A member of the RNA family "Ruegeria cis2 sRNA" from Actibacterium mucosum, 155 nucleotides long. A reference for the family is Rivers et al. (2016), "Experimental Identification of Small Non-Coding RNAs in the Model Marine Bacterium Ruegeria pomeroyi DSS-3", Front Microbiol. The family's RNA type in Rfam is small RNA. Pairs were carried over by alignment from the consensus structure, which was predicted with RNAfold.
RNA sequence: AUCGAGCUGAAAUGCGGAUUAUAGUUGAUGAACGUGAAUCCGCGCGCUUGAUCGAUUGCGUGAAACAGCGGGUUCCAGUCAAACAGCGCCAGCAUCGACCCCGGCAGCGUGUUGGCCAAAAACAUCUUUCCUGACGAAAUCAUGUUCGCGCGCUG
Numbered sequence: 001a002u003c004g005a006g007c008u009g010a011a012a013u014g015c016g017g018a019u020u021a022u023a024g025u026u027g028a029u030g031a032a033c034g035u036g037a038a039u040c041c042g043c044g045c046g047c048u049u050g051a052u053c054g055a056u057u058g059c060g061u062g063a064a065a066c067a068g069c070g071g072g073u074u075c076c077a078g079u080c081a082a083a084c085a086g087c088g089c090c091a092g093c094a095u096c097g098a099c100c101c102c103g104g105c106a107g108c109g110u111g112u113u114g115g116c117c118a119a120a121a122a123c124a125u126c127u128u129u130c131c132u133g134a135c136g137a138a139a140u141c142a143u144g145u146u147c148g149c150g151c152g153c154u155g
Base pairs, nucleotide, nucleotide: 002037003036004035008034009033015027016026017025040058042056043054044053066155067154068153069152070151072084073083074082088149089148091146092145093144094143095142100136102133103132104131106128107127109125110124112121113120